[Rfam]
A member of the RNA family "Small nucleolar RNA SNORD103/SNORD85" from Eurypyga helias, 92 nucleotides long. The source organism's lineage runs through Eukaryota, Chordata, Tetrapoda, Phaethontimorphae and Eurypyga.
RNA sequence: GCAGGCAAUGAUGACACACUUGCCCUCACUGAGAUCCGUUGCAGAGAUUGUUGUUGAGAACGUCCUCUGUGCUCACUGUGGGCUGAGCCUCC
Numbered sequence: 001g002c003a004g005g006c007a008a009u010g011a012u013g014a015c016a017c018a019c020u021u022g023c024c025c026u027c028a029c030u031g032a033g034a035u036c037c038g039u040u041g042c043a044g045a046g047a048u049u050g051u052u053g054u055u056g057a058g059a060a061c062g063u064c065c066u067c068u069g070u071g072c073u074c075a076c077u078g079u080g081g082g083c084u085g086a087g088c089c090u091c092c
Stems, first nucleotide, its partner, number of pairs: 001092001003090004

Source information:
A reference for the family is Huttenhofer et al. (2001), "RNomics: an experimental approach that identifies 201 candidates for novel, small, non-messenger RNAs in mouse", EMBO J. Rfam 15.1 lists 1,349 matches to the family in 595 species. The family's RNA type in Rfam is C/D-box small nucleolar RNA.